[Rfam]
RNA sequence: ACAGCAAGGGCUGUGGCUGCUGCCAUGCAUGGUUUUCGCUGUGUCUGCCAGCAUUUGCAUUCAGAUAUCGCUAUCUGCACACACAUCAAGCAGCUGAAGAGGAACCUGGGAUCAUAGCACCAGUCUAGGGUUGGCCCUUUGGGCCCAUCUACCAUGGCCAGCCUCCAAAUUCCCACACAUAG
Numbered sequence: 001a002c003a004g005c006a007a008g009g010g011c012u013g014u015g016g017c018u019g020c021u022g023c024c025a026u027g028c029a030u031g032g033u034u035u036u037c038g039c040u041g042u043g044u045c046u047g048c049c050a051g052c053a054u055u056u057g058c059a060u061u062c063a064g065a066u067a068u069c070g071c072u073a074u075c076u077g078c079a080c081a082c083a084c085a086u087c088a089a090g091c092a093g094c095u096g097a098a099g100a101g102g103a104a105c106c107u108g109g110g111a112u113c114a115u116a117g118c119a120c121c122a123g124u125c126u127a128g129g130g131u132u133g134g135c136c137c138u139u140u141g142g143g144c145c146c147a148u149c150u151a152c153c154a155u156g157g158c159c160a161g162c163c164u165c166c167a168a169a170u171u172c173c174c175a176c177a178c179a180u181a182g
Base pairs, nucleotide, nucleotide: 010091011090012089026081027080030077031076032075036073038071039070041068043066044065045064046063047062051058052057107175108174109173110172111171120161123158124157125156127155129153132147133146134145136143137142

Small nucleolar RNA SNORA23: a 182-nucleotide RNA from Carlito syrichta.
It scores 76 bits against the family's covariance model.
The organism belongs to Carlito, within Eukaryota.
Gene Ontology terms of the family: RNA processing and nucleolus.
Pairs were carried over by alignment from the consensus structure, which was predicted with RNAalifold.